[Rfam]
RNA sequence: UCACUUUGAUAAGCACUUGGGCAGCAGGAGGUAUUGCUGGCACAGACCUAGCUCCUGCGGCACUAGUACUUAGGAAAGUGA
Numbered sequence: 001u002c003a004c005u006u007u008g009a010u011a012a013g014c015a016c017u018u019g020g021g022c023a024g025c026a027g028g029a030g031g032u033a034u035u036g037c038u039g040g041c042a043c044a045g046a047c048c049u050a051g052c053u054c055c056u057g058c059g060g061c062a063c064u065a066g067u068a069c070u071u072a073g074g075a076a077a078g079u080g081a
Stems, first nucleotide, its partner, number of pairs: 001081007010072004015067003019063001024058007